[Rfam]
RNA sequence: UACCGAGCGUCGUGAGGCGAAGGGAUGAACGUGCAGAAGUCAGCCGAAGCCGUAGUAAGUGACGAAUGACCGCGUCACCAAGGGC
Numbered sequence: 001u002a003c004c005g006a007g008c009g010u011c012g013u014g015a016g017g018c019g020a021a022g023g024g025a026u027g028a029a030c031g032u033g034c035a036g037a038a039g040u041c042a043g044c045c046g047a048a049g050c051c052g053u054a055g056u057a058a059g060u061g062a063c064g065a066a067u068g069a070c071c072g073c074g075u076c077a078c079c080a081a082g083g084g085c
Stems, first nucleotide, its partner, number of pairs: 001027002004023001008019004040047002049085003059078006